[Rfam]
RNA sequence: GCUAAAGAUAGUUCACUCCUUCAUAUAUCCUCGAUAAUAUGGUUCGAGAGUCUCUACCGGGUUGCCGUAAAUGACCUGACUAUGAAGGCAGAUUCUAUUGUC
Numbered sequence: 001g002c003u004a005a006a007g008a009u010a011g012u013u014c015a016c017u018c019c020u021u022c023a024u025a026u027a028u029c030c031u032c033g034a035u036a037a038u039a040u041g042g043u044u045c046g047a048g049a050g051u052c053u054c055u056a057c058c059g060g061g062u063u064g065c066c067g068u069a070a071a072u073g074a075c076c077u078g079a080c081u082a083u084g085a086a087g088g089c090a091g092a093u094u095c096u097a098u099u100g101u102c
Stems, first nucleotide, its partner, number of pairs: 018088008030048005058078007

The family of this 102-nucleotide sequence from Mangrovibacillus cuniculi is "Purine riboswitch aptamer". Its family is annotated with purine nucleobase biosynthetic process in the Gene Ontology. About the family: Riboswitches are metabolite binding domains within certain messenger RNAs that serve as precision sensors for their corresponding targets. NCBI's taxonomy places the organism under Bacteria, Bacillati, Caryophanales, Bacillaceae, Mangrovibacillus.